The family of this 112-nucleotide RNA sequence from Metabacillus harenarius is "SAM riboswitch aptamer (S box leader)". About the family: The SAM riboswitch is found upstream of a number of genes which code for proteins involved in methionine or cysteine biosynthesis in Gram-positive bacteria.
[Rfam]
RNA sequence: CUCUUAUCAAGAGAGGUGGAGGGAAGUGCCCUAUGAAGCCCGGCAACCAUCAACUUACUUAGAGUUGAAGUGGUGCCAAUUCACUCAAAGCGUAUGCUUUGAAAGAUGAGAG
Numbered sequence: 001c002u003c004u005u006a007u008c009a010a011g012a013g014a015g016g017u018g019g020a021g022g023g024a025a026g027u028g029c030c031c032u033a034u035g036a037a038g039c040c041c042g043g044c045a046a047c048c049a050u051c052a053a054c055u056u057a058c059u060u061a062g063a064g065u066u067g068a069a070g071u072g073g074u075g076c077c078a079a080u081u082c083a084c085u086c087a088a089a090g091c092g093u094a095u096g097c098u099u100u101g102a103a104a105g106a107u108g109a110g111a112g
Stems, first nucleotide, its partner, number of pairs: 001112008013041001015040003021031003025085004042077004047073002050068006081104001086101006